[Rfam]
RNA: L4-Archaeoglobi ribosomal protein leades
RNA sequence: CUGAAGGGCGCGUCCGGGUCAAUUGCGGAUUGCAACACCCGAUUUCGCUCGUCGUCCCGUCGCAAAUGACGGUCGGCGAGGGGGAGCGCGUUACCGUCAG
Numbered sequence: 001c002u003g004a005a006g007g008g009c010g011c012g013u014c015c016g017g018g019u020c021a022a023u024u025g026c027g028g029a030u031u032g033c034a035a036c037a038c039c040c041g042a043u044u045u046c047g048c049u050c051g052u053c054g055u056c057c058c059g060u061c062g063c064a065a066a067u068g069a070c071g072g073u074c075g076g077c078g079a080g081g082g083g084g085a086g087c088g089c090g091u092u093a094c095c096g097u098c099a100g
Stems, first nucleotide, its partner, number of pairs: 001100004008091006015041004023035005045085002048082002052079004